[Rfam]
RNA: Editing element of GABA-3 exon 9
Organism: Oryzias latipes
RNA sequence: AAAGUUGCAUACGCCACCGCCAUGGACUGGUUCAUCGCUGUCUGCUACGCCUUC
Numbered sequence: 001a002a003a004g005u006u007g008c009a010u011a012c013g014c015c016a017c018c019g020c021c022a023u024g025g026a027c028u029g030g031u032u033c034a035u036c037g038c039u040g041u042c043u044g045c046u047a048c049g050c051c052u053u054c
Stems, first nucleotide, its partner, number of pairs: 002053002007050002010047002013045002016041002019038002022035005